Source information: Shown here is a 111-nucleotide sequence from Brevibacillus fulvus, a member of the family "SAM riboswitch aptamer (S box leader)".
RNA sequence: UUCUUAUCCAGAGAGGUGGAGGGACUGGCCCGAUGAAACCCAGCAACCACUAGCGGAACAGGCUAGAAGGUGCUAAUUCCUGCAAAACAGCUUUGUUUUGGGAGAUAAGAG
Numbered sequence: 001u002u003c004u005u006a007u008c009c010a011g012a013g014a015g016g017u018g019g020a021g022g023g024a025c026u027g028g029c030c031c032g033a034u035g036a037a038a039c040c041c042a043g044c045a046a047c048c049a050c051u052a053g054c055g056g057a058a059c060a061g062g063c064u065a066g067a068a069g070g071u072g073c074u075a076a077u078u079c080c081u082g083c084a085a086a087a088c089a090g091c092u093u094u095g096u097u098u099u100g101g102g103a104g105a106u107a108a109g110a111g
Base pairs, nucleotide, nucleotide: 001111002110003109004108005107006106007105008104013041015040016039017038021031022030023029025082027080028079042074043073044072045071047070048069050066051065052064053063078103083100084099085098086097087096088095
The match comes from Rfam's covariance-model search (92 bits).